[Rfam]
Shown here is a 303-nucleotide RNA sequence from Zingiber officinale, a member of the family "Plant signal recognition particle RNA". The family's RNA type in Rfam is non-coding RNA gene.
RNA sequence: GCCGAGCUGAGUUGCGUCAGCUUUUCACUCAAGCGGGGGCAGCAAAUGGUUUGAAUGAGACAGUUGAGUUCUGUGGUGUGAACGGUUGUAUUGUCGCUGGCCUGCCCGUUCCAAGUUGAUAGUAAAACAGUGAAACUGAGCGUAAGCCCGGUUUGGCUGUUUCAUAAUGUGGGAGGGGACUGGGUCAGGCUGGUUUCACAGAGCAAUCACACCCAUUCGCUUUCAAUGGUGGAAAGAUAACAGGCCGGUUUACAACCUGUCCACUGUAUCCAUUAGAACCGCUUCUAUCAAACAAAUCAUUUU
Numbered sequence: 001g002c003c004g005a006g007c008u009g010a011g012u013u014g015c016g017u018c019a020g021c022u023u024u025u026c027a028c029u030c031a032a033g034c035g036g037g038g039g040c041a042g043c044a045a046a047u048g049g050u051u052u053g054a055a056u057g058a059g060a061c062a063g064u065u066g067a068g069u070u071c072u073g074u075g076g077u078g079u080g081a082a083c084g085g086u087u088g089u090a091u092u093g094u095c096g097c098u099g100g101c102c103u104g105c106c107c108g109u110u111c112c113a114a115g116u117u118g119a120u121a122g123u124a125a126a127a128c129a130g131u132g133a134a135a136c137u138g139a140g141c142g143u144a145a146g147c148c149c150g151g152u153u154u155g156g157c158u159g160u161u162u163c164a165u166a167a168u169g170u171g172g173g174a175g176g177g178g179a180c181u182g183g184g185u186c187a188g189g190c191u192g193g194u195u196u197c198a199c200a201g202a203g204c205a206a207u208c209a210c211a212c213c214c215a216u217u218c219g220c221u222u223u224c225a226a227u228g229g230u231g232g233a234a235a236g237a238u239a240a241c242a243g244g245c246c247g248g249u250u251u252a253c254a255a256c257c258u259g260u261c262c263a264c265u266g267u268a269u270c271c272a273u274u275a276g277a278a279c280c281g282c283u284u285c286u287a288u289c290a291a292a293c294a295a296a297u298c299a300u301u302u303u
Stems, first nucleotide, its partner, number of pairs: 001040003004023007028037003044302010056290002059286001062283003066279001069277002073273004080261002084257003088253003093249001097248008106236001109234005115227005121221003125162007133154006140147002164170002171218003175214003183208003190201003